LOOT RNA: a 119-nucleotide sequence. Rfam classes the family as a small RNA. The base pairs follow the family's consensus structure, which is taken from published work.
RNA sequence: CACCUAAGGCCUGUGCGGUACGGUGGAAAAACACACAAGAAGACGGUACUAACCCCGUCGUUUAGAUACUUUCUUGUGUGUCGCAUUGGGAAACCUUUGCGGAGUCGUUAAUUCGGCUC
Numbered sequence: 001c002a003c004c005u006a007a008g009g010c011c012u013g014u015g016c017g018g019u020a021c022g023g024u025g026g027a028a029a030a031a032c033a034c035a036c037a038a039g040a041a042g043a044c045g046g047u048a049c050u051a052a053c054c055c056c057g058u059c060g061u062u063u064a065g066a067u068a069c070u071u072u073c074u075u076g077u078g079u080g081u082c083g084c085a086u087u088g089g090g091a092a093a094c095c096u097u098u099g100c101g102g103a104g105u106c107g108u109u110a111a112u113u114c115g116g117c118u119c
Stems, first nucleotide, its partner, number of pairs: 001025004010017001032080011045069001049065004082101004088095002102119006